The record is a 100-nucleotide sequence, which matches "L4-Archaeoglobi ribosomal protein leades" in Rfam. Rfam's curators put it in the seed alignment.
RNA sequence: CUGACGGCCGCGUCCGGGUCAAUUGCGAACUGCAACACCCAACCACCCUUCGUGCGCCUCCGUCGAUGGAGGUGCGGGAGGGGCAACGCGUCGCCAUCAG
Numbered sequence: 001c002u003g004a005c006g007g008c009c010g011c012g013u014c015c016g017g018g019u020c021a022a023u024u025g026c027g028a029a030c031u032g033c034a035a036c037a038c039c040c041a042a043c044c045a046c047c048c049u050u051c052g053u054g055c056g057c058c059u060c061c062g063u064c065g066a067u068g069g070a071g072g073u074g075c076g077g078g079a080g081g082g083g084c085a086a087c088g089c090g091u092c093g094c095c096a097u098c099a100g
Stems, first nucleotide, its partner, number of pairs: 001100004009090005016040003023035005046083006053076009